[Rfam]
RNA sequence: CCUACCGCGAGGUGAGGUCUGAAGGAGGCCGGAGGCAAAACCGCGGCCUGAUGAACAAGACCCCCAUACGAGGCUGGUCCGUUCGGAUGAGCUGGCGCUACACAGCAAAAUCCUAGGCUGUCAAAGUACGGUAGAGUAAAUGGGGCAGGCGCGGGGCGAAGGUCAGUGUU
Number, nucleotide and partner (000 for none) at each position: 001c016002c000003u014004a013005c012006c011007g000008c000009g000010a000011g006012g005013u004014g003015a000016g001017g000018u000019c000020u000021g000022a000023a000024g000025g000026a000027g000028g170029c000030c168031g167032g000033a000034g000035g163036c162037a000038a000039a000040a000041c156042c155043g000044c153045g152046g150047c149048c148049u147050g146051a000052u000053g000054a000055a000056c000057a000058a000059g000060a000061c000062c145063c144064c143065c142066a141067u140068a000069c000070g000071a000072g000073g137074c136075u135076g000077g000078u000079c131080c130081g129082u128083u000084c000085g113086g112087a111088u110089g000090a000091g106092c105093u104094g103095g000096c000097g000098c000099u000100a000101c000102a000103c094104a093105g092106c091107a000108a000109a000110a088111u087112c086113c085114u000115a000116g000117g000118c000119u000120g000121u000122c000123a000124a000125a000126g000127u000128a082129c081130g080131g079132u000133a000134g000135a075136g074137u073138a000139a000140a067141u066142g065143g064144g063145g062146c050147a049148g048149g047150c046151g000152c045153g044154g000155g042156g041157c000158g000159a000160a000161g000162g036163u035164c000165a000166g000167u031168g030169u000170u028
Notes: Group II catalytic intron D1-D4-3: a 170-nucleotide RNA from Thermosinus carboxydivorans. Group II introns are found in rRNA, tRNA and mRNA of organelles in fungi, plants and protists, and also in mRNA in bacteria. It is one of the family's seed sequences. The literature on the family includes a 2001 paper in Trends Genet by Bonen and Vogel, "The ins and outs of group II introns". Rfam links the family to the GO term Group II intron splicing.